A member of the RNA family "int-alpA RNA" from Microvirga aerophila, 68 nucleotides long. Rfam describes the family as follows. Acidobacteria (1 example), Planctomycetes (1 example), Proteobacteria. Pairs were carried over by alignment from the consensus structure, which is taken from published work.
RNA sequence: CACACGGCUAGGCCGGCCAGCCGAAAACCCCGACCGCACCGGGGCUGCCGUGUGCAUUUUCCAUAGUG
Numbered sequence: 001c002a003c004a005c006g007g008c009u010a011g012g013c014c015g016g017c018c019a020g021c022c023g024a025a026a027a028c029c030c031c032g033a034c035c036g037c038a039c040c041g042g043g044g045c046u047g048c049c050g051u052g053u054g055c056a057u058u059u060u061c062c063a064u065a066g067u068g
Stems, first nucleotide, its partner, number of pairs: 001054008011022003028044005034068001038064001

A search with the family's covariance model found it, with a score of 49 bits.